[Rfam]
RNA sequence: AUCGUUGUAGAAAAUCAAGAAUCAGAUGCUACUCAGCUGUGCCUGUGACAUCAGGGUGAAGAGCAAGUGGCUAUUUCUAUGCCCAGUGUUCAGAAGCCAGUGAGCACUAAGAAUGGUUUAUAGCCUGACAUUU
Numbered sequence: 001a002u003c004g005u006u007g008u009a010g011a012a013a014a015u016c017a018a019g020a021a022u023c024a025g026a027u028g029c030u031a032c033u034c035a036g037c038u039g040u041g042c043c044u045g046u047g048a049c050a051u052c053a054g055g056g057u058g059a060a061g062a063g064c065a066a067g068u069g070g071c072u073a074u075u076u077c078u079a080u081g082c083c084c085a086g087u088g089u090u091c092a093g094a095a096g097c098c099a100g101u102g103a104g105c106a107c108u109a110a111g112a113a114u115g116g117u118u119u120a121u122a123g124c125c126u127g128a129c130a131u132u133u
Base pairs, nucleotide, nucleotide: 003058004057005056006055008053010051023045024044025043069125070124071123077116078115079114082111087106088105089104090103091102092101

A member of the RNA family "Small nucleolar RNA SNORA43" from Microtus ochrogaster, 133 nucleotides long. It scores 108 bits against the family's covariance model. The family's consensus secondary structure was predicted with RNAfold. It is annotated as an H/ACA-box small nucleolar RNA. Its Rfam clan is "SNORA17 clan". ACA43 is a member of the H/ACA class of snoRNA that guide the sites of modification of uridines to pseudouridines. Lineage of the source: Eukaryota > Sarcopterygii > Dipnotetrapodomorpha > Cricetidae > Microtus.